RNA sequence: GCGAUGAGCUAAAUUGCAUAAGAUGAGAUUGACAUGCUUUUUGAGCAAUGCACAAAUGUGGAGUGCAGUCUCUCGCCGCAAUACGCACAAGACGUCCAAAUUAGGACGUC
Dot-bracket structure: .............((((......(((((..(((..((.......))..((.((.........)).))))))))))..)))).........(((((((......)))))))